[Rfam]
RNA sequence: GGGGACAGCCACCCUCCCUGUCCUCCAGGAGCUCACGUACUCCUGCCUGUGAGCACCUCGACGACAGAGCCGGUGUCCGUCCCUGCACUGCC
Numbered sequence: 001g002g003g004g005a006c007a008g009c010c011a012c013c014c015u016c017c018c019u020g021u022c023c024u025c026c027a028g029g030a031g032c033u034c035a036c037g038u039a040c041u042c043c044u045g046c047c048u049g050u051g052a053g054c055a056c057c058u059c060g061a062c063g064a065c066a067g068a069g070c071c072g073g074u075g076u077c078c079g080u081c082c083c084u085g086c087a088c089u090g091c092c
Stems, first nucleotide, its partner, number of pairs: 005080002008077001010075004016069001018067003022063001024061002027058003031054006037046003
RNA: mir-339 microRNA precursor family
Organism: Nannospalax galili